[Rfam]
RNA: DUF3800-XI RNA
RNA sequence: UGGGCUGGUUGAAAAACCUCGGUCCACCGACACGGCGUGGGGAUCCCGC
Numbered sequence: 001u002g003g004g005c006u007g008g009u010u011g012a013a014a015a016a017c018c019u020c021g022g023u024c025c026a027c028c029g030a031c032a033c034g035g036c037g038u039g040g041g042g043a044u045c046c047c048g049c
Stems, first nucleotide, its partner, number of pairs: 001026006007018004